[Rfam]
RNA sequence: UGGUCUCUACCAAGGCUGCUAGGAAAUCUCAUUUCUGGUAUGCUGUGGACGUGACCAUAAAGUAACUCCUCCAGAUUUUUUUAUUGUUGCUACGGUAGCAUCAAAUCUGUUGGAAACAUCU
Dot-bracket structure: ..(((.(..(((.................((.........))...)))..).)))..............((((((((.......(((..........)))...))))...)))).......
About this RNA: The family of this 121-nucleotide RNA from Podarcis lilfordi is "Small nucleolar RNA SNORA32". Gene Ontology terms of the family: RNA processing and nucleolus. NCBI's taxonomy places the organism under Eukaryota, Craniata, Dipnotetrapodomorpha, Lepidosauria, Podarcis. Rfam's curators write: ACA32 is a member of the H/ACA class of snoRNA that guide the sites of modification of uridines to pseudouridines. The family has 9 seed sequences and 615 matches in Rfam 15.1.